Rfam assigns this 99-nucleotide sequence to the family "Guanidine-I riboswitch aptamer".
It is one of the family's seed sequences.
[Rfam]
RNA sequence: GGCGGAGAAACCUAGGGUUCCGAUCCCGUCAGGGAUGCCUGGUCCGAGAGGUUUCGGUCGGCACAACCGGCUGCACUGAGGGACAAAAGCCCGGGAGAC
Numbered sequence: 001g002g003c004g005g006a007g008a009a010a011c012c013u014a015g016g017g018u019u020c021c022g023a024u025c026c027c028g029u030c031a032g033g034g035a036u037g038c039c040u041g042g043u044c045c046g047a048g049a050g051g052u053u054u055c056g057g058u059c060g061g062c063a064c065a066a067c068c069g070g071c072u073g074c075a076c077u078g079a080g081g082g083a084c085a086a087a088a089g090c091c092c093g094g095g096a097g098a099c
Stems, first nucleotide, its partner, number of pairs: 007055006015045002020042002022039001023036005056072006074094001076097001080092003